This 137-nucleotide RNA sequence from Gossypium raimondii belongs to the Rfam family "MIR396 microRNA precursor family". The family's consensus secondary structure was predicted with WAR. Gene Ontology terms of the family: RISC complex and miRNA-mediated post-transcriptional gene silencing. Taxonomically the source falls in Gossypium (Eukaryota, Streptophytina, Euphyllophyta, Spermatophyta).
RNA sequence: GAUCAUGCUUUUCCACAGCUUUCUUGAACUUUCUUUGUUUUCCAUCAUAAAAGAAUUAGCUAAUAGCUAGAUACAUGUAUAUAUAUGUGUAUGUAUAUACCAUGGAAGCUCAAGAAAGCUGUGGGAGAACAUGAUGA
Numbered sequence: 001g002a003u004c005a006u007g008c009u010u011u012u013c014c015a016c017a018g019c020u021u022u023c024u025u026g027a028a029c030u031u032u033c034u035u036u037g038u039u040u041u042c043c044a045u046c047a048u049a050a051a052a053g054a055a056u057u058a059g060c061u062a063a064u065a066g067c068u069a070g071a072u073a074c075a076u077g078u079a080u081a082u083a084u085a086u087g088u089g090u091a092u093g094u095a096u097a098u099a100c101c102a103u104g105g106a107a108g109c110u111c112a113a114g115a116a117a118g119c120u121g122u123g124g125g126a127g128a129a130c131a132u133g134a135u136g137a
Stems, first nucleotide, its partner, number of pairs: 003134005013124003017120006024113004029108005